Record summary
This 74-nucleotide sequence from Escherichia coli belongs to the Rfam family "OrzO-P RNA antitoxin family". It is annotated as an antitoxin RNA.

RNA sequence: CGAAAUGUUGCACAAUCAGCAAGUUAGCGUCACUGUAGUAAAUAAAAGAACCUGCCUCACCAGCAGGUUUUUUU
Numbered sequence: 001c002g003a004a005a006u007g008u009u010g011c012a013c014a015a016u017c018a019g020c021a022a023g024u025u026a027g028c029g030u031c032a033c034u035g036u037a038g039u040a041a042a043u044a045a046a047a048g049a050a051c052c053u054g055c056c057u058c059a060c061c062a063g064c065a066g067g068u069u070u071u072u073u074u
Base pairs, nucleotide, nucleotide: 008022009021010020011019044074045073046072047071048070049069050068051067052066053065054064055063

Its family is annotated with negative regulation of translation and mRNA binding in the Gene Ontology. A reference for the family is Fozo et al. (2010), "Abundance of type I toxin-antitoxin systems in bacteria: searches for new candidates and discovery of novel families", Nucleic Acids Res.